[Rfam]
RNA sequence: CCCCUUCAAUUCCGGGGGAAACCGGACUAUAUCAGGCUUGUUCCCGGCAACGGGAACUAUGGUGAUAAACGCGCACGUAAUACGCGGAUCGGACCCGGGGGCGGUACCCGGCGGCUCCACCAACACCCCGUUCAUUGGCGGGCGAUGGGGCCGAAACAGGAUCGACGGACGUCUAAAGGUGUUUGCUUUUACCCGGUGAGGUACCACCGUUAUCGGUCCGACAUGUACAGUUGCCAAUGACAACCGUGCUCCGGUGGCGCUCGCAGCGUAAGCUGUUCGCAAAACCGAUCUUAAGCCCUGUCCUCUAGCAAGGCCAGGCGGGGUUCGCAGGCACCUGGCAACAGAAGCCUGCACU
Numbered sequence: 001c002c003c004c005u006u007c008a009a010u011u012c013c014g015g016g017g018g019a020a021a022c023c024g025g026a027c028u029a030u031a032u033c034a035g036g037c038u039u040g041u042u043c044c045c046g047g048c049a050a051c052g053g054g055a056a057c058u059a060u061g062g063u064g065a066u067a068a069a070c071g072c073g074c075a076c077g078u079a080a081u082a083c084g085c086g087g088a089u090c091g092g093a094c095c096c097g098g099g100g101g102c103g104g105u106a107c108c109c110g111g112c113g114g115c116u117c118c119a120c121c122a123a124c125a126c127c128c129c130g131u132u133c134a135u136u137g138g139c140g141g142g143c144g145a146u147g148g149g150g151c152c153g154a155a156a157c158a159g160g161a162u163c164g165a166c167g168g169a170c171g172u173c174u175a176a177a178g179g180u181g182u183u184u185g186c187u188u189u190u191a192c193c194c195g196g197u198g199a200g201g202u203a204c205c206a207c208c209g210u211u212a213u214c215g216g217u218c219c220g221a222c223a224u225g226u227a228c229a230g231u232u233g234c235c236a237a238u239g240a241c242a243a244c245c246g247u248g249c250u251c252c253g254g255u256g257g258c259g260c261u262c263g264c265a266g267c268g269u270a271a272g273c274u275g276u277u278c279g280c281a282a283a284a285c286c287g288a289u290c291u292u293a294a295g296c297c298c299u300g301u302c303c304u305c306u307a308g309c310a311a312g313g314c315c316a317g318g319c320g321g322g323g324u325u326c327g328c329a330g331g332c333a334c335c336u337g338g339c340a341a342c343a344g345a346a347g348c349c350u351g352c353a354c355u
Stems, first nucleotide, its partner, number of pairs: 040057007061193005071186002073182004085171002089168003095111005112153007194209004200219002203217003321336004327352006
Alphaproteobacteria transfer-messenger RNA: a 355-nucleotide RNA sequence from Paroceanicella profunda. Gene Ontology term of the family: RNA catabolic process. Lineage of the source: Bacteria > Pseudomonadota > Alphaproteobacteria > Rhodobacterales > Paroceanicella.